[Rfam]
RNA sequence: GCCUAGGGUAGAGGCGCUAUAAUUAAGAGUAUCUAAUUGGAGCUUGCAAGCUUAGAUGAUUAGAAAAAGGAAUUAUAGCCGAAGAAAAUUUGUUGGCAGAUGAAUUUUCUGGUUUUACAUAUAAUAUGUGUAAAACUGUCACUUGAAAGUAAUUUAAGUGGUGAGCUACAAGGUUA
Number, nucleotide and partner (000 for none) at each position: 001g000002c000003c000004u000005a000006g000007g000008g169009u168010a167011g166012a000013g000014g000015c000016g079017c078018u077019a076020u075021a074022a073023u072024u071025a000026a000027g000028a000029g000030u000031a000032u064033c063034u062035a061036a060037u059038u058039g057040g000041a000042g000043c000044u000045u000046g000047c000048a000049a000050g000051c000052u000053u000054a000055g000056a000057u039058g038059a037060u036061u035062a034063g033064a032065a000066a000067a000068a000069g000070g000071a024072a023073u022074u021075a020076u019077a018078g017079c016080c000081g000082a000083a110084g109085a108086a107087a106088a105089u104090u103091u102092g101093u100094u099095g000096g000097c000098a000099g094100a093101u092102g091103a090104a089105u088106u087107u086108u085109c084110u083111g137112g136113u135114u134115u133116u132117a131118c130119a129120u128121a127122u000123a000124a000125u000126a000127u121128g120129u119130g118131u117132a116133a115134a114135a113136c112137u111138g000139u161140c160141a159142c158143u157144u156145g155146a000147a000148a000149g000150u000151a000152a000153u000154u000155u145156a144157a143158g142159u141160g140161g139162u000163g000164a000165g000166c011167u010168a009169c008170a000171a000172g000173g000174u000175u000176a000

Shown here is a 176-nucleotide RNA from Asaccharospora irregularis, a member of the family "Lysine riboswitch aptamer".